Source information:
Rfam assigns this 368-nucleotide RNA from Geobacter sulfurreducens to the family "Bacterial RNase P class A".
[Rfam]
RNA sequence: CGAAGCAGAACAGAUGGCCGCCCUUCGCGUGCGGGGGGAGGAAAGUCCGGGCUCCACAGGGCAUGGUGCUGGAUAACGUCCAGCGGGGGCGACCCCAGGGAUAGUGCCACAGAGAGAAGUCCGCCCGCUCAGGCGGGUAAGGGUGAAAGGGUGAGGUAAGAGCUCACCGGGUUCGGCGGUGACGUCGGAUGCCAGGUAAACCCCACCAGGAGCAAGGCCGAAUAGGGAAGCGUCAAGGAUGGCCCGUCCGUGCUUCCGGGUUGGCUGCUUGAGGCCGUCGGUAACGGCGGUCCCAGAGGAAUGGUCAUCGCCCGCCAAGGGGUAACCCGCGGCGGGAACAGAACCCGGCUUAUGGGCUGCUUCGACCA
Numbered sequence: 001c002g003a004a005g006c007a008g009a010a011c012a013g014a015u016g017g018c019c020g021c022c023c024u025u026c027g028c029g030u031g032c033g034g035g036g037g038g039a040g041g042a043a044a045g046u047c048c049g050g051g052c053u054c055c056a057c058a059g060g061g062c063a064u065g066g067u068g069c070u071g072g073a074u075a076a077c078g079u080c081c082a083g084c085g086g087g088g089g090c091g092a093c094c095c096c097a098g099g100g101a102u103a104g105u106g107c108c109a110c111a112g113a114g115a116g117a118a119g120u121c122c123g124c125c126c127g128c129u130c131a132g133g134c135g136g137g138u139a140a141g142g143g144u145g146a147a148a149g150g151g152u153g154a155g156g157u158a159a160g161a162g163c164u165c166a167c168c169g170g171g172u173u174c175g176g177c178g179g180u181g182a183c184g185u186c187g188g189a190u191g192c193c194a195g196g197u198a199a200a201c202c203c204c205a206c207c208a209g210g211a212g213c214a215a216g217g218c219c220g221a222a223u224a225g226g227g228a229a230g231c232g233u234c235a236a237g238g239a240u241g242g243c244c245c246g247u248c249c250g251u252g253c254u255u256c257c258g259g260g261u262u263g264g265c266u267g268c269u270u271g272a273g274g275c276c277g278u279c280g281g282u283a284a285c286g287g288c289g290g291u292c293c294c295a296g297a298g299g300a301a302u303g304g305u306c307a308u309c310g311c312c313c314g315c316c317a318a319g320g321g322g323u324a325a326c327c328c329g330c331g332g333c334g335g336g337a338a339c340a341g342a343a344c345c346c347g348g349c350u351u352a353u354g355g356g357c358u359g360c361u362u363c364g365a366c367c368a
Stems, first nucleotide, its partner, number of pairs: 001364008011355001012353001013309007021038007043351003047348005052212004059245004064208005069083005084098001085096004099203002104201002106197003121142002123138006150168006170192001171190008216266004226257006237249004273292008
The sequence is in the family's curated seed alignment. Gene Ontology terms of the family: tRNA processing, ribonuclease P activity and dimeric ribonuclease P complex. The organism belongs to Geobacter sulfurreducens, within Bacteria.